[Rfam]
Plastid-ccsA-ndhD-2 3UTR RNA: a 53-nucleotide sequence from Tetracentron sinense. The literature on the family includes a 2023 paper in Plant Commun by Richter et al., "Retrograde signaling in plants: A critical review focusing on the GUN pathway and beyond". Rfam's curators write: Plastid ccsA-ndhD-2 is a non-coding RNA (ncRNA) recognised in plastids. It was found in the three prime untranslated region (3UTR) of ccsA and ndhD genes, its 3UTR location suggests a role in transcript maturation. Pairs were carried over by alignment from the consensus structure, which was predicted with LocARNA.
RNA sequence: UUUUUGAGAACCAUUUGAAUCAAGUAUUUUAAUCAUGCAAAUGGUUCUCAAAA
Numbered sequence: 001u002u003u004u005u006g007a008g009a010a011c012c013a014u015u016u017g018a019a020u021c022a023a024g025u026a027u028u029u030u031a032a033u034c035a036u037g038c039a040a041a042u043g044g045u046u047c048u049c050a051a052a053a
Stems, first nucleotide, its partner, number of pairs: 004051014019036002022033001